c-di-GMP-I riboswitch aptamer: an 80-nucleotide sequence from Methylophaga thalassica. The family's consensus secondary structure is taken from published work.

[Rfam]
RNA sequence: UAUCAUUAUUGCCAAACUCAGCGUGAGCUGAGGACGGAAAGCUACAGACCUUAAGCUCUUAAGGUGGCUGAGUUACAUAG
Numbered sequence: 001u002a003u004c005a006u007u008a009u010u011g012c013c014a015a016a017c018u019c020a021g022c023g024u025g026a027g028c029u030g031a032g033g034a035c036g037g038a039a040a041g042c043u044a045c046a047g048a049c050c051u052u053a054a055g056c057u058c059u060u061a062a063g064g065u066g067g068c069u070g071a072g073u074u075a076c077a078u079a080g
Base pairs, nucleotide, nucleotide: 012037013036017032018031019030020029021028022027040074041073042072043071045070046069047068048065049064050063051062052061053060054059